[Rfam]
RNA sequence: AUUGGCACGAUGAGGAGAUUUUGUUAUAUUAUCUGAGAUUGAACAAUCUUUGAACGAUAUUCAAGUCCUUUUCAUUCUGAGUGCAAU
Numbered sequence: 001a002u003u004g005g006c007a008c009g010a011u012g013a014g015g016a017g018a019u020u021u022u023g024u025u026a027u028a029u030u031a032u033c034u035g036a037g038a039u040u041g042a043a044c045a046a047u048c049u050u051u052g053a054a055c056g057a058u059a060u061u062c063a064a065g066u067c068c069u070u071u072u073c074a075u076u077c078u079g080a081g082u083g084c085a086a087u
Stems, first nucleotide, its partner, number of pairs: 005084004010075005038047003
RNA: Small nucleolar RNA Z162
Organism: Acer yangbiense